[Rfam]
RNA sequence: GCAAUGCUUACAGCAUGUCUCCCGAAAGUGGGAACCGGUUUCGGGAUAAAGACAUGCGUGAAAACAAGAGAUUAAAGCAUGUCGCUUGAACACGAUAAAGCACGACGUGCUUUAGGCUACGGAGUAUCGGGGUAAUGAUGCAGAAAGAUGCUGGAAUUCUGGCGGAUGCGGAUAUUUCCGCGCUGUUUGAAAGC
Numbered sequence: 001g002c003a004a005u006g007c008u009u010a011c012a013g014c015a016u017g018u019c020u021c022c023c024g025a026a027a028g029u030g031g032g033a034a035c036c037g038g039u040u041u042c043g044g045g046a047u048a049a050a051g052a053c054a055u056g057c058g059u060g061a062a063a064a065c066a067a068g069a070g071a072u073u074a075a076a077g078c079a080u081g082u083c084g085c086u087u088g089a090a091c092a093c094g095a096u097a098a099a100g101c102a103c104g105a106c107g108u109g110c111u112u113u114a115g116g117c118u119a120c121g122g123a124g125u126a127u128c129g130g131g132g133u134a135a136u137g138a139u140g141c142a143g144a145a146a147g148a149u150g151c152u153g154g155a156a157u158u159c160u161g162g163c164g165g166a167u168g169c170g171g172a173u174a175u176u177u178c179c180g181c182g183c184u185g186u187u188u189g190a191a192a193g194c
Stems, first nucleotide, its partner, number of pairs: 013057008022045002026041004031036001062188005069118002072115013087100001120180004126176001
RNA: Brucella sRNA CI27